The record is a 49-nucleotide RNA sequence, which matches "L31-Actinobacteria ribosomal protein leader" in Rfam. The sequence is in the family's curated seed alignment. Pairs were carried over by alignment from the consensus structure, which is taken from published work.
Nucleotides: 049
Stems, first nucleotide, its partner, number of pairs: 003049003007044004015038003019034005
Number, partner (000 for none) and nucleotide at each position: 001000c002000u003049g004048g005047u006000u007044c008043c009042g010041g011000u012000u013000c014000a015038c016037g017036u018000g019034g020033g021032c022031g023030u024000c025000g026000u027000a028000c029000g030023a031022c032021g033020u034019c035000g036017a037016c038015g039000a040000c041010c042009c043008g044007g045000c046000g047005a048004c049003c